RNA sequence: GCGAGGUGAUGAUGCAAAUCACAUGGUCUGUCAAUCCACUGAUUGAUUGGUGAUGUCACACUAGUGAUUUAUCCCGACAGGUUCUGAUCGC
Numbered sequence: 001g002c003g004a005g006g007u008g009a010u011g012a013u014g015c016a017a018a019u020c021a022c023a024u025g026g027u028c029u030g031u032c033a034a035u036c037c038a039c040u041g042a043u044u045g046a047u048u049g050g051u052g053a054u055g056u057c058a059c060a061c062u063a064g065u066g067a068u069u070u071a072u073c074c075c076g077a078c079a080g081g082u083u084c085u086g087a088u089c090g091c
Stems, first nucleotide, its partner, number of pairs: 001091004
RNA: Small nucleolar RNA snoR14